A member of the RNA family "Lysine riboswitch aptamer", 179 nucleotides long.
On this family, see Mandal et al., Cell 2003: "Riboswitches Control Fundamental Biochemical Pathways in Bacillus subtilis and Other Bacteria".
Pairs were carried over by alignment from the consensus structure, which is taken from published work.
Its family is annotated with lysine biosynthetic process in the Gene Ontology.
[Rfam]
RNA sequence: CGUAUGGAUAGAGGCGCAGUUUUGAUUAGUCGUUACUUUGAGGUUUAUGGUACCUGUGAUAAGUAAUAAAAGGCGAAACUGCCGAAGUAAUAAUUUUACCAUUUAAAUUUAUUACUGGGCCUAUUGCUGAAUAAGCGUAGGACUGUCACAAGAUUUUCUUGUGGAGGGCUAUUGAAGAG
Numbered sequence: 001c002g003u004a005u006g007g008a009u010a011g012a013g014g015c016g017c018a019g020u021u022u023u024g025a026u027u028a029g030u031c032g033u034u035a036c037u038u039u040g041a042g043g044u045u046u047a048u049g050g051u052a053c054c055u056g057u058g059a060u061a062a063g064u065a066a067u068a069a070a071a072g073g074c075g076a077a078a079c080u081g082c083c084g085a086a087g088u089a090a091u092a093a094u095u096u097u098a099c100c101a102u103u104u105a106a107a108u109u110u111a112u113u114a115c116u117g118g119g120c121c122u123a124u125u126g127c128u129g130a131a132u133a134a135g136c137g138u139a140g141g142a143c144u145g146u147c148a149c150a151a152g153a154u155u156u157u158c159u160u161g162u163g164g165a166g167g168g169c170u171a172u173u174g175a176a177g178a179g
Stems, first nucleotide, its partner, number of pairs: 007173005016082009032067007086116008095107003117144002120141004125137004146164007